Shown here is a 251-nucleotide RNA sequence from Trifolium subterraneum, a member of the family "MIR2655 microRNA precursor family". It scores 133 bits against the family's covariance model. NCBI's taxonomy places the organism under Eukaryota, Embryophyta, Gunneridae, rosids, Trifolium. Pairs were carried over by alignment from the consensus structure, which was predicted with RNAalifold. The family has 25 seed sequences and 892 matches in Rfam 15.1.
[Rfam]
RNA sequence: CCCUUAUCUUUUAAAAGUUUCAAGUUGGUUCCUUAUCUUUAUUUUAGGUUUCAAGUUGGUCCCUUCCGUCAAUUUUUUAACUAUUUCCAUUAAAUUUGACACGUGGCAAACUAAUUUGGACACGUGGCACACUUGGACAGAUGACACAUGUCCAAAUUUAACGGUAACGGUAAAAAAAUUGACGGAAUGGACCAACUAAAAACCUAAAAAAAAGAUAAGGGACCAACUUGAAACUUUUAAAAGAUAAGGGA
Numbered sequence: 001c002c003c004u005u006a007u008c009u010u011u012u013a014a015a016a017g018u019u020u021c022a023a024g025u026u027g028g029u030u031c032c033u034u035a036u037c038u039u040u041a042u043u044u045u046a047g048g049u050u051u052c053a054a055g056u057u058g059g060u061c062c063c064u065u066c067c068g069u070c071a072a073u074u075u076u077u078u079a080a081c082u083a084u085u086u087c088c089a090u091u092a093a094a095u096u097u098g099a100c101a102c103g104u105g106g107c108a109a110a111c112u113a114a115u116u117u118g119g120a121c122a123c124g125u126g127g128c129a130c131a132c133u134u135g136g137a138c139a140g141a142u143g144a145c146a147c148a149u150g151u152c153c154a155a156a157u158u159u160a161a162c163g164g165u166a167a168c169g170g171u172a173a174a175a176a177a178a179u180u181g182a183c184g185g186a187a188u189g190g191a192c193c194a195a196c197u198a199a200a201a202a203c204c205u206a207a208a209a210a211a212a213a214g215a216u217a218a219g220g221g222a223c224c225a226a227c228u229u230g231a232a233a234c235u236u237u238u239a240a241a242a243g244a245u246a247a248g249g250g251a
Base pairs, nucleotide, nucleotide: 002249003248004247005246006245007244008243023228024227025226027224028223029222031220032219033218034217035216036215037214038213039212040211042209043208045206046205047204